Rfam assigns this 72-nucleotide RNA sequence from Ursus americanus to the family "Small nucleolar RNA SNORD113/SNORD114 family". Rfam classes the family as a C/D-box small nucleolar RNA. Rfam describes the family as follows. The imprinted human domain at 14q32 contains two clusters of tandemly repeated small nucleolar RNAs named 14q(I) and 14q(II) snoRNAs. These two clusters are named SNORD113 and SNORD114 respectively in the HGNC approved gene symbol nomenclature. The snoRNAs found in both clusters are clearly related and are represented here by a single family. These snoRNAs are intron encoded and are processed from the tissue-specific non-coding human MEG8 RNA, which lies downstream of the imprinted genes DLK1 and GTL2. snoRNAs 14q(I) and 14q(II) differ from previously identified C/D box snoRNAs in their expression profiles and lack of complementarity to rRNA and snRNA. Homologues of these snoRNAs are found in the imprinted non-coding mouse transcript Rian, and in the rat non-coding Bsr (brain-specific repetitive) RNA. The family is grouped with related families in Rfam's "SNORD74 clan". Gene Ontology terms of the family: nucleolus and RNA processing. The source organism's lineage runs through Eukaryota, Metazoa, Chordata, Ursidae and Ursus.
[Rfam]
RNA sequence: UGGAUCGAUGAUGACCACUGAUGGCAUAUGAGUCGUAUAUGAUGAGUAUGUGUCUGGAACUCUGAGGUCCAA
Numbered sequence: 001u002g003g004a005u006c007g008a009u010g011a012u013g014a015c016c017a018c019u020g021a022u023g024g025c026a027u028a029u030g031a032g033u034c035g036u037a038u039a040u041g042a043u044g045a046g047u048a049u050g051u052g053u054c055u056g057g058a059a060c061u062c063u064g065a066g067g068u069c070c071a072a
Stems, first nucleotide, its partner, number of pairs: 002070005